Rfam assigns this 41-nucleotide RNA to the family "eL15-Euryarchaeota ribosomal protein leader". It is annotated as a cis-regulatory leader. The literature on the family includes a 2020 paper in BMC Microbiol by Eckert and Weinberg, "Discovery of 20 novel ribosomal leader candidates in bacteria and archaea". Pairs were carried over by alignment from the consensus structure, which is taken from published work.

RNA sequence: GGGACACUGUCCCAUGGAUGUGGCGAAGGCUGAACAAAAAG
Numbered sequence: 001g002g003g004a005c006a007c008u009g010u011c012c013c014a015u016g017g018a019u020g021u022g023g024c025g026a027a028g029g030c031u032g033a034a035c036a037a038a039a040a041g
Stems, first nucleotide, its partner, number of pairs: 001013005015037001017035001022031003